[Rfam]
RNA sequence: GCAGACACACUCUGUGCUGAACUGCAGUAUUCAGUUCAGGUACUUUUUCUGUCUGCAAGAGUAAUAGUUCACAGGAGUGACAAUUGCCUUCUUUCUUGUAGAAGUGUGUUACUAUUGCUGUUGAGACAUUGCU
Dot-bracket structure: ((((((.......(((((((.(((.......))).))).)))).......))))))...........((.((((..(((..(((.......................)))..)))..)))).)).........
Numbered sequence: 001g002c003a004g005a006c007a008c009a010c011u012c013u014g015u016g017c018u019g020a021a022c023u024g025c026a027g028u029a030u031u032c033a034g035u036u037c038a039g040g041u042a043c044u045u046u047u048u049c050u051g052u053c054u055g056c057a058a059g060a061g062u063a064a065u066a067g068u069u070c071a072c073a074g075g076a077g078u079g080a081c082a083a084u085u086g087c088c089u090u091c092u093u094u095c096u097u098g099u100a101g102a103a104g105u106g107u108g109u110u111a112c113u114a115u116u117g118c119u120g121u122u123g124a125g126a127c128a129u130u131g132c133u
Stems, first nucleotide, its partner, number of pairs: 001056006014043004018038003022034003068124002071121004077115003082110003

This 133-nucleotide RNA from Nycticryphes semicollaris belongs to the Rfam family "Small nucleolar RNA SNORA77". Rfam's curators write: ACA63 (SNORA77) is a member of the H/ACA class of snoRNAs that guide the sites of modification of uridines to pseudouridines. This snoRNA was identified by computational screening and its expression in mouse experimentally verified by Northern blot and primer extension analysis. ACA63 is proposed to guide the pseudouridylation of 18S rRNA U814. Taxonomically the source falls in Nycticryphes (Eukaryota, Vertebrata, Teleostomi, Euteleostomi).